Rfam assigns this 91-nucleotide RNA from Microbotryum intermedium to the family "tRNA". Its family is annotated with triplet codon-amino acid adaptor activity in the Gene Ontology. The match comes from Rfam's covariance-model search (54 bits). About the family: Transfer RNA (tRNA) molecules are approximately 80 nucleotides in length. Their secondary structure includes four short double-helical elements and three loops (D, anti-codon, and T loops).
RNA sequence: UCUCGUGUAGCUUAGUGGCAGAGCGUCAUGCUUAUGCACUUUUUAAAUCAAAGUGACUUGAAGGCCGCGAGUUCAAUCCUCGCCACGAGAA
Numbered sequence: 001u002c003u004c005g006u007g008u009a010g011c012u013u014a015g016u017g018g019c020a021g022a023g024c025g026u027c028a029u030g031c032u033u034a035u036g037c038a039c040u041u042u043u044u045a046a047a048u049c050a051a052a053g054u055g056a057c058u059u060g061a062a063g064g065c066c067g068c069g070a071g072u073u074c075a076a077u078c079c080u081c082g083c084c085a086c087g088a089g090a091a
Stems, first nucleotide, its partner, number of pairs: 001090007010024004026061003030057001067083005